[Rfam]
RNA sequence: CUCGGACCCGGUGAGAUUCCGGGUGGCUCCGCCGGCCGCCGAUCCGCCGGAAAACC
Number, nucleotide and partner (000 for none) at each position: 001c000002u000003c000004g000005g000006a024007c023008c022009c021010g020011g019012u000013g000014a000015g000016a000017u000018u000019c011020c010021g009022g008023g007024u006025g000026g000027c000028u000029c000030c000031g000032c050033c049034g048035g047036c046037c000038g000039c000040c000041g000042a000043u000044c000045c000046g036047c035048c034049g033050g032051a000052a000053a000054a000055c000056c000
This 56-nucleotide RNA sequence from a Kiloniellaceae bacterium belongs to the Rfam family "sul1 RNA". It scores 73 bits against the family's covariance model.